[Rfam]
RNA sequence: UCUCUCCUCCAUGCCUUGAGUGUAGGACCGUUGGCAUCUUAAUUACCCUCCCACACCCAAGGCUUGCA
Numbered sequence: 001u002c003u004c005u006c007c008u009c010c011a012u013g014c015c016u017u018g019a020g021u022g023u024a025g026g027a028c029c030g031u032u033g034g035c036a037u038c039u040u041a042a043u044u045a046c047c048c049u050c051c052c053a054c055a056c057c058c059a060a061g062g063c064u065u066g067c068a
Stems, first nucleotide, its partner, number of pairs: 008068001010066002013063006020056004025051003030046002
mir-532 microRNA precursor family: a 68-nucleotide RNA from Macaca mulatta. Rfam links the family to the GO terms cell, miRNA-mediated post-transcriptional gene silencing and cellular response to leukemia inhibitory factor. It is one of the family's seed sequences.